[Rfam]
RNA sequence: UGCGAGUAAGGCGAUGAAGCUCGCCUCAAAUGCCGCCCCUGGCUAAUGGCUUCUACCCAGUG
Numbered sequence: 001u002g003c004g005a006g007u008a009a010g011g012c013g014a015u016g017a018a019g020c021u022c023g024c025c026u027c028a029a030a031u032g033c034c035g036c037c038c039c040u041g042g043c044u045a046a047u048g049g050c051u052u053c054u055a056c057c058c059a060g061u062g
Base pairs, nucleotide, nucleotide: 010025011024012023013022016053017052018051019050020049021048032043033042034041035040
Dot-bracket structure: .........[[[[..((((((]]]]......((((....))))....)))))).........